[Rfam]
Rfam assigns this 147-nucleotide RNA from Pseudodesulfovibrio sp. JC047 to the family "FMN riboswitch aptamer (RFN element)". Gene Ontology term of the family: FMN binding.

RNA sequence: ACUUGUUCUCAGGGCGGGGUGGAAGUCCCCACCGGCGGUAACCUGGUUUGCCAGGAAGCCCGCGAGCGUUUCUCUCUGUUGGGAAAGUCUGCAGACCCGGUGUGAUUCCGGGGCCGACGGUAAAAGUCCGGAUGAAAGAGAAUGAGG
Numbered sequence: 001a002c003u004u005g006u007u008c009u010c011a012g013g014g015c016g017g018g019g020u021g022g023a024a025g026u027c028c029c030c031a032c033c034g035g036c037g038g039u040a041a042c043c044u045g046g047u048u049u050g051c052c053a054g055g056a057a058g059c060c061c062g063c064g065a066g067c068g069u070u071u072c073u074c075u076c077u078g079u080u081g082g083g084a085a086a087g088u089c090u091g092c093a094g095a096c097c098c099g100g101u102g103u104g105a106u107u108c109c110g111g112g113g114c115c116g117a118c119g120g121u122a123a124a125a126g127u128c129c130g131g132a133u134g135a136a137a138g139a140g141a142a143u144g145a146g147g
Base pairs, nucleotide, nucleotide: 003145004144005143006142007141008140009139010138017029018028019027031127032126033116034115035063036062037061038060058114059113066092067091068090096112097111098110099109100108118130119129120128